RNA: U2 spliceosomal RNA
RNA sequence: AUUUCUUCUCAGACUUUUGGCUAAGAUCAAAUAUAGUAUUUUUUCUUAUCAGUUUAAUAUCUGAUACAUCCUCUAUCCAAGGACAAUAUAUUAAAUGGAUUUCUGGAGCAGGGAGUUGGAGUAGGAGCUUGUUCUGUCCAUUUCAUGCGUCGACUUGGUAUUGAAGUACCUCCAGGAAUGGUGUGCCCUGU
Numbered sequence: 001a002u003u004u005c006u007u008c009u010c011a012g013a014c015u016u017u018u019g020g021c022u023a024a025g026a027u028c029a030a031a032u033a034u035a036g037u038a039u040u041u042u043u044u045c046u047u048a049u050c051a052g053u054u055u056a057a058u059a060u061c062u063g064a065u066a067c068a069u070c071c072u073c074u075a076u077c078c079a080a081g082g083a084c085a086a087u088a089u090a091u092u093a094a095a096u097g098g099a100u101u102u103c104u105g106g107a108g109c110a111g112g113g114a115g116u117u118g119g120a121g122u123a124g125g126a127g128c129u130u131g132u133u134c135u136g137u138c139c140a141u142u143u144c145a146u147g148c149g150u151c152g153a154c155u156u157g158g159u160a161u162u163g164a165a166g167u168a169c170c171u172c173c174a175g176g177a178a179u180g181g182u183g184u185g186c187c188c189u190g191u
Base pairs, nucleotide, nucleotide: 007026008025009024011022012021014019047066048065049064050063051062052061069083070082071081072080112144113143114142115141116140118138119137124135125134126133127132147184148183149182150181151180152179154176155175156174157173158172